[Rfam]
RNA sequence: UAUCUCUGACCUGGGUAGAGCAGCAUCUGCUUGGUGGUGCCCAUCUCAUAUCAGCCACAGAUACAGCAAUCCCUUGUUUAUCCCUUGGCCUUUGGUCUGUACCCAUGCCUGGUUUAUGUGUGGAAAAUAUGG
Numbered sequence: 001u002a003u004c005u006c007u008g009a010c011c012u013g014g015g016u017a018g019a020g021c022a023g024c025a026u027c028u029g030c031u032u033g034g035u036g037g038u039g040c041c042c043a044u045c046u047c048a049u050a051u052c053a054g055c056c057a058c059a060g061a062u063a064c065a066g067c068a069a070u071c072c073c074u075u076g077u078u079u080a081u082c083c084c085u086u087g088g089c090c091u092u093u094g095g096u097c098u099g100u101a102c103c104c105a106u107g108c109c110u111g112g113u114u115u116a117u118g119u120g121u122g123g124a125a126a127a128u129a130u131g132g
Base pairs, nucleotide, nucleotide: 001063002062003061004060005059007057008056011054012053013052014051018047019046020045023040024039025038026037027036075127077125078124079123088119089118093116094115095114097112098111099110102107
RNA: Small nucleolar RNA SNORA48